The record is an 85-nucleotide RNA from Cephalotus follicularis, which matches "Small nucleolar RNA R38" in Rfam. Rfam's curators write: snoR38 is a C/D box small nucleolar RNA conserved across yeast, human, Arabidopsis and rice. It is encoded in the intron of elongation factor-1 gamma in both pombe and cerevisiae. snoR38 guides the methylation of 2'-O-ribose sites in 28S rRNA. The family's RNA type in Rfam is C/D-box small nucleolar RNA. It scores 45 bits against the family's covariance model. Rfam links the family to the GO terms nucleolus and RNA processing.

[Rfam]
RNA sequence: UUUUGUGUAUGAUGUGAACAAAAAUAUUUAUUCUUAGUUAUCCCUGUCUGAUACUUGUGCUGACCAUUAGUGAUCUGACGCAUAC
Numbered sequence: 001u002u003u004u005g006u007g008u009a010u011g012a013u014g015u016g017a018a019c020a021a022a023a024a025u026a027u028u029u030a031u032u033c034u035u036a037g038u039u040a041u042c043c044c045u046g047u048c049u050g051a052u053a054c055u056u057g058u059g060c061u062g063a064c065c066a067u068u069a070g071u072g073a074u075c076u077g078a079c080g081c082a083u084a085c
Stems, first nucleotide, its partner, number of pairs: 002084001004082004